[Rfam]
RNA sequence: CGCAGCCCCUCGCGUGGCGCUAUCUCACCCAAUCCCCCAGGGCCGGAAGGCAGCAAGGGUCAGUGGGCUCUAGUGGGUGCGCGAGGGGUCCUCACG
Numbered sequence: 001c002g003c004a005g006c007c008c009c010u011c012g013c014g015u016g017g018c019g020c021u022a023u024c025u026c027a028c029c030c031a032a033u034c035c036c037c038c039a040g041g042g043c044c045g046g047a048a049g050g051c052a053g054c055a056a057g058g059g060u061c062a063g064u065g066g067g068c069u070c071u072a073g074u075g076g077g078u079g080c081g082c083g084a085g086g087g088g089u090c091c092u093c094a095c096g
Stems, first nucleotide, its partner, number of pairs: 005089010015077001018075005024067005034059003042051003
Dot-bracket structure: ....(((((((((((..(((((.(((((.....(((.....(((....))).....)))...)))))...))))).)..)))))))))).......
RNA: Bacterial small signal recognition particle RNA